[Rfam]
The family of this 127-nucleotide sequence from Pontibacillus chungwhensis is "Ribosomal protein L20 leader". Rfam links the family to the GO term regulation of gene expression. It scores 73 bits against the family's covariance model. This family is a putative r-protein leader autoregulatory structure found in B. subtilis and other low-GC Gram-positive bacteria. It is located in the 5' untranslated regions of mRNAs encoding initiation factor 3 followed by ribosomal proteins L35 and L20 (infC-rpmI-rplT). A Rho-independent transcription terminator structure that is probably involved in regulation is included at the 3' end. Rfam classes the family as a cis-regulatory leader. For this family Rfam cites "Diverse mechanisms for regulating ribosomal protein synthesis in Escherichia coli" (Zengel and Lindahl, Prog Nucleic Acid Res Mol Biol, 1994).

RNA sequence: UGAGACAAGUAGAAGCACCCGCUUCUCACCUGAUUGACACUCUUAUGAGUAGUUACCAGGUAUGAUUUUCUAAACGUAAUUGGGAAACGUGUGGGUGCAGUAUGUGUGCCGACACUUUUUUUGAUUG
Dot-bracket structure: ..........((((((....)))))).(((.....(((((((....)))).)))....)))............................(((.((((((.....)))))).))).............
Numbered sequence: 001u002g003a004g005a006c007a008a009g010u011a012g013a014a015g016c017a018c019c020c021g022c023u024u025c026u027c028a029c030c031u032g033a034u035u036g037a038c039a040c041u042c043u044u045a046u047g048a049g050u051a052g053u054u055a056c057c058a059g060g061u062a063u064g065a066u067u068u069u070c071u072a073a074a075c076g077u078a079a080u081u082g083g084g085a086a087a088c089g090u091g092u093g094g095g096u097g098c099a100g101u102a103u104g105u106g107u108g109c110c111g112a113c114a115c116u117u118u119u120u121u122u123g124a125u126u127g
Stems, first nucleotide, its partner, number of pairs: 011026006028061003036054003039050004090114003094110006